Description
Rfam assigns this 67-nucleotide sequence from Kurthia sibirica to the family "Bacillaceae-1 RNA". A search with the family's covariance model found it, with a score of 60 bits. Rfam classes the family as a small RNA. The family has 95 seed sequences and 5,721 matches in Rfam 15.1. NCBI's taxonomy places the organism under Bacteria, Bacillati, Bacilli, Caryophanaceae, Kurthia.

RNA sequence: UCUAGCAGAACAUCGACUAAAUUCCGCACGUCCUGUGCGAACAUCGAUGGCACUCACAUCGUGUGAG
Number, nucleotide and partner (000 for none) at each position: 001u000002c000003u000004a000005g000006c000007a000008g000009a000010a000011c049012a048013u047014c046015g045016a044017c000018u000019a000020a000021a000022u000023u000024c000025c039026g038027c037028a036029c035030g000031u000032c000033c000034u000035g029036u028037g027038c026039g025040a000041a000042c000043a000044u016045c015046g014047a013048u012049g011050g000051c000052a000053c067054u066055c065056a064057c063058a000059u000060c000061g000062u000063g057064u056065g055066a054067g053
The family's consensus secondary structure is taken from published work.